[Rfam]
RNA sequence: ACACGGGAAAGGAGGUGGUCCUCAGUUGUAUUCACACAGGACUCGUGAGGUGGCUGUCCGCUAGCGGAUAGCACGCGCAAGGGACUUUGAGCAGCGAUACAACCCGAGCCACCUUCGGCUCAUCGCCUGCUUCGCGUGCUGCCUGAGAGCGAAUACCAGGCAGUCACCGGGCUCCCGGGGUUCUCGAGCACCAGUCCGGCUCGAGCCUGGACGCGUGACGGCGUCCAGGAGGCACCCCGGGGGCUACCACUA
Numbered sequence: 001a002c003a004c005g006g007g008a009a010a011g012g013a014g015g016u017g018g019u020c021c022u023c024a025g026u027u028g029u030a031u032u033c034a035c036a037c038a039g040g041a042c043u044c045g046u047g048a049g050g051u052g053g054c055u056g057u058c059c060g061c062u063a064g065c066g067g068a069u070a071g072c073a074c075g076c077g078c079a080a081g082g083g084a085c086u087u088u089g090a091g092c093a094g095c096g097a098u099a100c101a102a103c104c105c106g107a108g109c110c111a112c113c114u115u116c117g118g119c120u121c122a123u124c125g126c127c128u129g130c131u132u133c134g135c136g137u138g139c140u141g142c143c144u145g146a147g148a149g150c151g152a153a154u155a156c157c158a159g160g161c162a163g164u165c166a167c168c169g170g171g172c173u174c175c176c177g178g179g180g181u182u183c184u185c186g187a188g189c190a191c192c193a194g195u196c197c198g199g200c201u202c203g204a205g206c207c208u209g210g211a212c213g214c215g216u217g218a219c220g221g222c223g224u225c226c227a228g229g230a231g232g233c234a235c236c237c238c239g240g241g242g243g244c245u246a247c248c249a250c251u252a
Stems, first nucleotide, its partner, number of pairs: 014058006059151004065145001067143001069141002072138006170245012183205006

Notes: The record is a 252-nucleotide sequence from Amycolatopsis jiangsuensis, which matches "Actinobacteria sRNA Ms_IGR-5" in Rfam. For this family Rfam cites "Identification of small RNAs in Mycobacterium smegmatis using heterologous Hfq" (Li et al., RNA, 2013). The source organism's lineage runs through Bacteria, Bacillati, Actinomycetes, Pseudonocardiaceae and Amycolatopsis.